[Rfam]
RNA sequence: GGACAGUAUUUUCCGAUUAAGAAGCAACUGACUUUUGUAGAGAUCAUGUAUUAAUUU
Numbered sequence: 001g002g003a004c005a006g007u008a009u010u011u012u013c014c015g016a017u018u019a020a021g022a023a024g025c026a027a028c029u030g031a032c033u034u035u036u037g038u039a040g041a042g043a044u045c046a047u048g049u050a051u052u053a054a055u056u057u
Base pairs, nucleotide, nucleotide: 018037019036020035021034022033025030
This 57-nucleotide RNA sequence from Genlisea aurea belongs to the Rfam family "Plastid-rps18 3UTR RNA". Rfam describes the family as follows. Plastid rps18 is a non-coding RNA (ncRNA) present in plastids. It is annotated as a cis-regulatory element. The source organism's lineage runs through Eukaryota, Streptophytina, Mesangiospermae, Pentapetalae and Genlisea.